[Rfam]
RNA sequence: GAGGCUGGCCGGGCGACCGCGGCGACCGCUUCACGGCGGUGGUCGAGGAAGGUCCGGGCUCCACAGGGCAAGGUGGUGGGUAACACCCACCCGGGGUGACCCGCGGGACAGUGCCACAGAGAACAGACCGCCUCCCGGCUCCGUUGUUUCGGGGCCGGGCGGCAAGGGUGAAACGGUGGUGCAAGAGACCACCAGUGUGCCGGGUGACCGGCACAGCUAGGUAAACCCCACCUGGAGCAAGAUCGAGAAGCCGCGACUCCGGUCGCGGUGCGCACGUGACCGAGGGCGGCCCGCCCGAGCGUGCGGGUGGAUCGCACGAGGCGGCCGGCAACGGUCGUCCCAGAUGGAUGGUCGCCAACUGCGGGGUCGCGAGGCCCCGCAGCGAACAGAACCCGGCCUAUGAGCCAGCCUCUCCG
Dot-bracket structure: (((((((((.((((((((.((((.((((........)))).))))....[[[.[[[[[((((...[[[[.((((((((((.....)))))(((((....)))).)((...(((((............(((((.((((((((((......)))))))))).)))..)).......((((((.......)))))).(((((((((....)))))))).)..)))..)))))))))))))...((((.......((((............................((((.]]]]))))...))))......))))......((((((((....))))))))..........)))))))...................................]]]]]]]].)..)))))))))....
Numbered sequence: 001g002a003g004g005c006u007g008g009c010c011g012g013g014c015g016a017c018c019g020c021g022g023c024g025a026c027c028g029c030u031u032c033a034c035g036g037c038g039g040u041g042g043u044c045g046a047g048g049a050a051g052g053u054c055c056g057g058g059c060u061c062c063a064c065a066g067g068g069c070a071a072g073g074u075g076g077u078g079g080g081u082a083a084c085a086c087c088c089a090c091c092c093g094g095g096g097u098g099a100c101c102c103g104c105g106g107g108a109c110a111g112u113g114c115c116a117c118a119g120a121g122a123a124c125a126g127a128c129c130g131c132c133u134c135c136c137g138g139c140u141c142c143g144u145u146g147u148u149u150c151g152g153g154g155c156c157g158g159g160c161g162g163c164a165a166g167g168g169u170g171a172a173a174c175g176g177u178g179g180u181g182c183a184a185g186a187g188a189c190c191a192c193c194a195g196u197g198u199g200c201c202g203g204g205u206g207a208c209c210g211g212c213a214c215a216g217c218u219a220g221g222u223a224a225a226c227c228c229c230a231c232c233u234g235g236a237g238c239a240a241g242a243u244c245g246a247g248a249a250g251c252c253g254c255g256a257c258u259c260c261g262g263u264c265g266c267g268g269u270g271c272g273c274a275c276g277u278g279a280c281c282g283a284g285g286g287c288g289g290c291c292c293g294c295c296c297g298a299g300c301g302u303g304c305g306g307g308u309g310g311a312u313c314g315c316a317c318g319a320g321g322c323g324g325c326c327g328g329c330a331a332c333g334g335u336c337g338u339c340c341c342a343g344a345u346g347g348a349u350g351g352u353c354g355c356c357a358a359c360u361g362c363g364g365g366g367u368c369g370c371g372a373g374g375c376c377c378c379g380c381a382g383c384g385a386a387c388a389g390a391a392c393c394c395g396g397c398c399u400a401u402g403a404g405c406c407a408g409c410c411u412c413u414c415c416g
Stems, first nucleotide, its partner, number of pairs: 001412009011401001012356007020045004025040004050399003054396005059237004066292004071233005076090005091105001092103004106228002111226002113222003128167002130163003134159010175193006195217001196215008241313004252303004284296004320339008
The record is a 416-nucleotide RNA sequence from Nocardioides donggukensis, which matches "Bacterial RNase P class A" in Rfam.
Taxonomically the source falls in Nocardioides (Bacteria, Actinomycetota, Actinomycetes, Propionibacteriales).
Gene Ontology terms of the family: ribonuclease P activity, tRNA processing and dimeric ribonuclease P complex.